The family of this 74-nucleotide RNA sequence from Acidiferrobacter sp. SPIII_3 is "DUF3800-IX RNA". Actinobacteria, Firmicutes (1 example), Nitrospirae, Proteobacteria, Verrucomicrobia (1 example). Taxonomically the source falls in Acidiferrobacter (Bacteria, Pseudomonadota, Gammaproteobacteria, Acidiferrobacterales). Pairs were carried over by alignment from the consensus structure, which is taken from published work.
[Rfam]
RNA sequence: GCCCGUGCAUUCCGAAUUGUCACCGUAUGGUGCGCGUGGCCGGAAAUCUCCGGUCUAGGAUGCCACGGGCGCAU
Numbered sequence: 001g002c003c004c005g006u007g008c009a010u011u012c013c014g015a016a017u018u019g020u021c022a023c024c025g026u027a028u029g030g031u032g033c034g035c036g037u038g039g040c041c042g043g044a045a046a047u048c049u050c051c052g053g054u055c056u057a058g059g060a061u062g063c064c065a066c067g068g069g070c071g072c073a074u
Stems, first nucleotide, its partner, number of pairs: 001070007009061001011060003018036003021032004038055005